[Rfam]
A member of the RNA family "Purine riboswitch aptamer" from Desulfuribacillus stibiiarsenatis, 102 nucleotides long. A search with the family's covariance model found it, with a score of 88 bits. Lineage of the source: Bacteria > Bacillota > Desulfuribacillia > Desulfuribacillales > Desulfuribacillus. The family's consensus secondary structure is taken from published work.
RNA sequence: AAAAAUUUCAAACGUAAGGUUCGUAUAUUCCUGGGAAUAAGGCUCAGAAGUCUCUACCAAGCAACCGUAAAUUGCUUGACUACGAAACGUCACGUAUCAUUG
Numbered sequence: 001a002a003a004a005a006u007u008u009c010a011a012a013c014g015u016a017a018g019g020u021u022c023g024u025a026u027a028u029u030c031c032u033g034g035g036a037a038u039a040a041g042g043c044u045c046a047g048a049a050g051u052c053u054c055u056a057c058c059a060a061g062c063a064a065c066c067g068u069a070a071a072u073u074g075c076u077u078g079a080c081u082a083c084g085a086a087a088c089g090u091c092a093c094g095u096a097u098c099a100u101u102g
Base pairs, nucleotide, nucleotide: 018088020086021085022084023083024082025081029049031047032046033045034044035043058078059077060076061075062074063073064072